[Rfam]
The record is a 91-nucleotide RNA sequence from Streptomyces sp. GS7, which matches "sodF sRNA" in Rfam. Its family is annotated with regulation of mRNA stability, negative regulation of translation and mRNA binding in the Gene Ontology. The family has 6 seed sequences and 336 matches in Rfam 15.1. Pairs were carried over by alignment from the consensus structure.
RNA sequence: ACGUCCUGCCUCGUGAUCGUCUUCUCACCGUUCACCCGGCAGGCGGACAAGAGCGAAGCCCCCGUGAGGACAGGACUCGCGGGGGCUUCGU
Numbered sequence: 001a002c003g004u005c006c007u008g009c010c011u012c013g014u015g016a017u018c019g020u021c022u023u024c025u026c027a028c029c030g031u032u033c034a035c036c037c038g039g040c041a042g043g044c045g046g047a048c049a050a051g052a053g054c055g056a057a058g059c060c061c062c063c064g065u066g067a068g069g070a071c072a073g074g075a076c077u078c079g080c081g082g083g084g085g086c087u088u089c090g091u
Stems, first nucleotide, its partner, number of pairs: 002045002005043006013035004019029001053091016